[Rfam]
RNA sequence: ACGGUGUUCCGCUGAAGUAAAUUACUUGUAAGAGCAUCUG
Numbered sequence: 001a002c003g004g005u006g007u008u009c010c011g012c013u014g015a016a017g018u019a020a021a022u023u024a025c026u027u028g029u030a031a032g033a034g035c036a037u038c039u040g
Base pairs, nucleotide, nucleotide: 003038004037005036006035007034008033009032013030014029015027016026017025018024
The family of this 40-nucleotide RNA from Lysinibacillus alkalisoli is "Ribosomal protein L19 leader".
It scores 38 bits against the family's covariance model.
About the family: This family is a putative r-protein leader autoregulatory structure found in B. subtilis and other low-GC Gram-positive bacteria. It is located in the 5' untranslated regions of mRNAs encoding ribosomal protein L19 (rplS).
By type it is a cis-regulatory leader.
Lineage of the source: Bacteria > Bacillati > Caryophanales > Bacillaceae > Lysinibacillus.